[Rfam]
RNA sequence: AACGAAAUAGGCGAUGGAGCUCGCCUUAACCACUGCCAAGCAGUUGAUGGCUCCUACCGGGGA
Numbered sequence: 001a002a003c004g005a006a007a008u009a010g011g012c013g014a015u016g017g018a019g020c021u022c023g024c025c026u027u028a029a030c031c032a033c034u035g036c037c038a039a040g041c042a043g044u045u046g047a048u049g050g051c052u053c054c055u056a057c058c059g060g061g062g063a
Stems, first nucleotide, its partner, number of pairs: 010025004016054006032044004
RNA: Fluoride riboswitch aptamer (crcB RNA motif)
Organism: Clostridiales bacterium PH28_bin88